Small nucleolar RNA SNORA3/SNORA45 family: a 125-nucleotide RNA from Pan troglodytes. It scores 85 bits against the family's covariance model. Rfam classes the family as an H/ACA-box small nucleolar RNA. A reference for the family is Gu et al. (2005), "A novel experimental approach for systematic identification of box H/ACA snoRNAs from eukaryotes", Nucleic Acids Res. The members of this family belong to the H/ACA class of snoRNAs which are thought to guide the sites of modification of uridines to pseudouridines. This family includes mouse snoMBI-28 and human homologues ACA3 (SNORA3) and ACA3-2 (SNORA45). Both ACA3 and ACA3-2 share the same host gene. MBI-28, ACA3 and ACA3-2 are all predicted to guide the pseudouridylation of residues in 28S rRNA.
RNA sequence: UCUGAGACUAGAGUCACAUCCUGACACGGCUCUUCUCCAAUGUGCUGGAGUCCUCAGCAUCUGCUGGUCUUGAUUCACUGAUGGGGGCAACCAGUGUCCCCUUAAGUGUCCGGGCAGAAACAUAC
Numbered sequence: 001u002c003u004g005a006g007a008c009u010a011g012a013g014u015c016a017c018a019u020c021c022u023g024a025c026a027c028g029g030c031u032c033u034u035c036u037c038c039a040a041u042g043u044g045c046u047g048g049a050g051u052c053c054u055c056a057g058c059a060u061c062u063g064c065u066g067g068u069c070u071u072g073a074u075u076c077a078c079u080g081a082u083g084g085g086g087g088c089a090a091c092c093a094g095u096g097u098c099c100c101c102u103u104a105a106g107u108g109u110c111c112g113g114g115c116a117g118a119a120a121c122a123u124a125c
Base pairs, nucleotide, nucleotide: 002057003056004055005054006053007051008050009049012046013045015044016043017042018041019040023037024036026034064117065116066115068114069113070112072110076108077107078106079105081103083101084100085099086098087097088096